[Rfam]
Nucleotides: 139
Base pairs, nucleotide, nucleotide: 004060005059006058007057016047017046018045019044074126075125076124077123093113095111
Number, partner (000 for none) and nucleotide at each position: 001000u002000u003000u004060c005059u006058c007057a008000u009000c010000u011000g012000a013000c014000u015000a016047c017046c018045a019044c020000a021000u022000u023000u024000u025000c026000u027000c028000c029000a030000g031000u032000u033000a034000a035000u036000a037000g038000a039000u040000u041000u042000u043000a044019g045018u046017g047016g048000c049000u050000a051000u052000g053000c054000u055000u056000a057007u058006g059005g060004g061000a062000u063000a064000g065000a066000u067000u068000a069000a070000a071000a072000u073000u074126g075125c076124c077123a078000a079000g080000a081000u082000c083000u084000g085000a086000a087000g088000a089000g090000g091000g092000u093113g094000u095111g096000g097000u098000u099000u100000u101000g102000g103000u104000a105000c106000c107000c108000c109000c110000u111095u112000u113093c114000u115000u116000u117000a118000u119000g120000a121000a122000a123077u124076g125075g126074c127000u128000a129000a130000a131000c132000a133000g134000a135000a136000a137000a138000a139000a
Annotation
Rfam assigns this 139-nucleotide RNA sequence from Oryctolagus cuniculus to the family "Small nucleolar RNA SNORA29". Its family is annotated with RNA processing and nucleolus in the Gene Ontology. The family's consensus secondary structure was predicted with PFOLD. On this family, see Huttenhofer et al., EMBO J 2001: "RNomics: an experimental approach that identifies 201 candidates for novel, small, non-messenger RNAs in mouse".